[Rfam]
RNA sequence: CUAAAGGCCCUUUUCAGGGCCACAAAAAAAAAACAAAAACAAAAAA
Numbered sequence: 001c002u003a004a005a006g007g008c009c010c011u012u013u014u015c016a017g018g019g020c021c022a023c024a025a026a027a028a029a030a031a032a033a034c035a036a037a038a039a040c041a042a043a044a045a046a
Stems, first nucleotide, its partner, number of pairs: 006021006

Histone 3' UTR stem-loop: a 46-nucleotide sequence from Bos mutus.
It scores 38 bits against the family's covariance model.
Its family is annotated with mRNA 3'-end processing by stem-loop binding and cleavage in the Gene Ontology.
About the family: The mRNAs of metazoan histone genes lack a poly-A tail. 3' end processing occurs at a site between a highly conserved stem-loop (modelled by this family) and a purine rich region around 20 nts downstream (the histone downstream element, or HDE).